[Rfam]
RNA sequence: GCAACUCUGGAAAGCAGUUCGUGCUGCGAAUCAGCACGAACUCACCGACGGGGAAAGCCAGUUGCCACUCGGCAACCGGUGAAGCUCUCAGGUACGGCGACAGAGGGGGCAUC
Numbered sequence: 001g002c003a004a005c006u007c008u009g010g011a012a013a014g015c016a017g018u019u020c021g022u023g024c025u026g027c028g029a030a031u032c033a034g035c036a037c038g039a040a041c042u043c044a045c046c047g048a049c050g051g052g053g054a055a056a057g058c059c060a061g062u063u064g065c066c067a068c069u070c071g072g073c074a075a076c077c078g079g080u081g082a083a084g085c086u087c088u089c090a091g092g093u094a095c096g097g098c099g100a101c102a103g104a105g106g107g108g109g110c111a112u113c
Base pairs, nucleotide, nucleotide: 002108005105006104007103008102009101016042017041018040019039020038021037022036023035024034025033026032044093045092046091047089048088051087052086053085057080058079
Annotation: The record is a 113-nucleotide sequence, which matches "Glycine riboswitch aptamer" in Rfam. Clan: Glycine riboswitch clan. A search with the family's covariance model found it, with a score of 45 bits.